The family of this 71-nucleotide RNA from Araneus ventricosus is "mir-87 microRNA precursor family". The family's consensus secondary structure was predicted with RNAalifold. A search with the family's covariance model found it, with a score of 60 bits. Gene Ontology terms of the family: RISC complex and miRNA-mediated post-transcriptional gene silencing. The source organism's lineage runs through Eukaryota, Metazoa, Protostomia, Arachnida and Araneus.

RNA sequence: CACCCUUCCACCUGAAACGUUGUCUCAACCUGUUCUCAACUAGGUGAGCAAAAUUUCAGGUGUGGGGGAGA
Numbered sequence: 001c002a003c004c005c006u007u008c009c010a011c012c013u014g015a016a017a018c019g020u021u022g023u024c025u026c027a028a029c030c031u032g033u034u035c036u037c038a039a040c041u042a043g044g045u046g047a048g049c050a051a052a053a054u055u056u057c058a059g060g061u062g063u064g065g066g067g068g069a070g071a
Stems, first nucleotide, its partner, number of pairs: 003068005009062007017054001020051002024048004029044003
Dot-bracket structure: ..(((((.(((((((.(..((..((((.(((..........))))))).))..).))))))).)))))...